[Rfam]
RNA sequence: GUCGGCUACGGAGACAUGCACCCGGUCACCGUCGGAGGGAAAAUAGUCGGGUCACUGUGUGCAAUUGCGGGCGUGUUAACCAUUGCCUUGCCUGUGCCAGUCAUUGUCUCCAAC
Numbered sequence: 001g002u003c004g005g006c007u008a009c010g011g012a013g014a015c016a017u018g019c020a021c022c023c024g025g026u027c028a029c030c031g032u033c034g035g036a037g038g039g040a041a042a043a044u045a046g047u048c049g050g051g052u053c054a055c056u057g058u059g060u061g062c063a064a065u066u067g068c069g070g071g072c073g074u075g076u077u078a079a080c081c082a083u084u085g086c087c088u089u090g091c092c093u094g095u096g097c098c099a100g101u102c103a104u105u106g107u108c109u110c111c112a113a114c
Stems, first nucleotide, its partner, number of pairs: 001114002004111002008107004013102003018097004037077002040074001050062001
Dot-bracket structure: ((.((..((((.(((..((((...............((.(.........(...........)...........).))................))))..))).))))..)).))
RNA: Potassium channel RNA editing signal
Organism: Acipenser ruthenus